RNA sequence: GAGUGUUGAAGCUCUUUUAGAAUUUGUCUAGCAGGUUUCCCAGUCCUCACUGGAAGACACUC
Dot-bracket structure: ..................................((((.(((((....))))).))))....
U7 small nuclear RNA: a 62-nucleotide sequence from Equus caballus.